[Rfam]
Nucleotides: 230
Base pairs, nucleotide, nucleotide: 001064002063003062004061005060006059008057010042011041013039014038015037016036017035018034043053044052045051067216068215069214071212072086073085074084075083076082089210090209091208092207093206094205095204096203110147111146116140117139118138119137120136121135122134123133127223128222129221130220131219149192150191151190152189153188154187155186156185157184161183162182164180165179166178168176169175
Number, partner (000 for none) and nucleotide at each position: 001064g002063u003062c004061a005060a006059c007000g008057a009000c010042c011041c012000a013039c014038c015037a016036c017035u018034a019000a020000u021000c022000g023000g024000a025000g026000u027000a028000c029000c030000g031000a032000u033000a034018u035017a036016g037015u038014g039013g040000g041011g042010g043053c044052u045051u046000g047000c048000a049000g050000a051045a052044a053043g054000c055000c056000a057008u058000a059006g060005u061004u062003g063002a064001c065000c066000a067216g068215a069214c070000u071212a072086a073085g074084u075083a076082c077000c078000u079000u080000g081000g082076g083075u084074a085073c086072u087000c088000c089210g090209u091208u092207a093206g094205a095204a096203g097000c098000a099000a100000g101000c102000g103000u104000u105000c106000a107000a108000c109000u110147u111146c112000c113000u114000a115000c116140c117139c118138g119137g120136a121135a122134a123133u124000g125000c126000g127223u128222c129221g130220c131219u132000a133123g134122u135121u136120u137119c138118c139117g140116g141000c142000u143000c144000u145000a146111g147110a148000a149192c150191u151190c152189g153188g154187u155186c156185a157184c158000u159000a160000a161183a162182c163000a164180u165179c166178u167000g168176u169175a170000a171000g172000g173000g174000u175169u176168a177000a178166g179165g180164a181000a182162g183161u184157g185156u186155g187154a188153c189152u190151g191150a192149g193000a194000a195000a196000g197000u198000a199000c200000c201000g202000a203096c204095u205094u206093c207092u208091a209090a210089c211000a212071u213000u214069g215068u216067c217000u218000a219131a220130g221129c222128g223127a224000a225000c226000a227000u228000u229000a230000c
Background
A member of the RNA family "HNH endonuclease-associated RNA and ORF (HEARO) RNA" from Limnoraphis robusta, 230 nucleotides long. On this family, see Weinberg et al., Nature 2009: "Exceptional structured noncoding RNAs revealed by bacterial metagenome analysis".